[Rfam]
RNA sequence: GAGUGAAAUGAUGUUUACCAUCUUUCGGGACUGACUUGCAGUGGAGAAAAUUCAAAAUGCUGAUCACUC
Numbered sequence: 001g002a003g004u005g006a007a008a009u010g011a012u013g014u015u016u017a018c019c020a021u022c023u024u025u026c027g028g029g030a031c032u033g034a035c036u037u038g039c040a041g042u043g044g045a046g047a048a049a050a051u052u053c054a055a056a057a058u059g060c061u062g063a064u065c066a067c068u069c
Stems, first nucleotide, its partner, number of pairs: 001069006